[Rfam]
RNA sequence: GGGCCCGGCUCCCGCCCUCUCCGGGGAAUCGUGAACCGGGGGUUCCGGCCGGGCCUACAGUUAUGAUGAACUUUUGCUUUGCUGAUGUGGUGAUGAGCACGCCCUUCGCUGAUACUCUCUCGUCCAU
Numbered sequence: 001g002g003g004c005c006c007g008g009c010u011c012c013c014g015c016c017c018u019c020u021c022c023g024g025g026g027a028a029u030c031g032u033g034a035a036c037c038g039g040g041g042g043u044u045c046c047g048g049c050c051g052g053g054c055c056u057a058c059a060g061u062u063a064u065g066a067u068g069a070a071c072u073u074u075u076g077c078u079u080u081g082c083u084g085a086u087g088u089g090g091u092g093a094u095g096a097g098c099a100c101g102c103c104c105u106u107c108g109c110u111g112a113u114a115c116u117c118u119c120u121c122g123u124c125c126a127u
Base pairs, nucleotide, nucleotide: 001056002055003054004053005052006051007050008049009048010047014043015042016041017040021039022038023037024036
RNA: Small nucleolar RNA snoR9